[Rfam]
RNA sequence: ACCCUUCCAUCCGCGCCGCCGAGCCCCUAUCUUAGGGGUGUCGGGCAACCGACUAUGACGAUAAACGCCUUUUGGAAUAGACGCUGCGGACCCGGGGGCGGUACCCGGCGCCUCCACCAAAUCUCCGGUGUUGGACGGAGCAUGGGGGCGAAAUAGGAUCGACGCGUGUAGUAAAGGGAAGGUUUUCGUCCGGCAUGGUUCCGCCGUUAUCGGGCCAUUGCAAUAGUUGCCAACGACAACUUUGCUGAGGUUCGCGCGGCUGCGUAAGCAGCUAAGCGUCCUCGAUCAAUCCCUCGGCGGUUAGCCCCGUCGAGGUGGGGCUUGGGGCACCCAGCAACAGAACGCCCCGCU
Numbered sequence: 001a002c003c004c005u006u007c008c009a010u011c012c013g014c015g016c017c018g019c020c021g022a023g024c025c026c027c028u029a030u031c032u033u034a035g036g037g038g039u040g041u042c043g044g045g046c047a048a049c050c051g052a053c054u055a056u057g058a059c060g061a062u063a064a065a066c067g068c069c070u071u072u073u074g075g076a077a078u079a080g081a082c083g084c085u086g087c088g089g090a091c092c093c094g095g096g097g098g099c100g101g102u103a104c105c106c107g108g109c110g111c112c113u114c115c116a117c118c119a120a121a122u123c124u125c126c127g128g129u130g131u132u133g134g135a136c137g138g139a140g141c142a143u144g145g146g147g148g149c150g151a152a153a154u155a156g157g158a159u160c161g162a163c164g165c166g167u168g169u170a171g172u173a174a175a176g177g178g179a180a181g182g183u184u185u186u187c188g189u190c191c192g193g194c195a196u197g198g199u200u201c202c203g204c205c206g207u208u209a210u211c212g213g214g215c216c217a218u219u220g221c222a223a224u225a226g227u228u229g230c231c232a233a234c235g236a237c238a239a240c241u242u243u244g245c246u247g248a249g250g251u252u253c254g255c256g257c258g259g260c261u262g263c264g265u266a267a268g269c270a271g272c273u274a275a276g277c278g279u280c281c282u283c284g285a286u287c288a289a290u291c292c293c294u295c296g297g298c299g300g301u302u303a304g305c306c307c308c309g310u311c312g313a314g315g316u317g318g319g320g321c322u323u324g325g326g327g328c329a330c331c332c333a334g335c336a337a338c339a340g341a342a343c344g345c346c347c348c349g350c351u
Stems, first nucleotide, its partner, number of pairs: 040053005057190005067183007082168003086165003092108005109150007191206004196217003200214003318332003324348004
Rfam assigns this 351-nucleotide sequence from Inquilinus limosus to the family "Alphaproteobacteria transfer-messenger RNA". The family's consensus secondary structure is taken from published work. A search with the family's covariance model found it, with a score of 273 bits.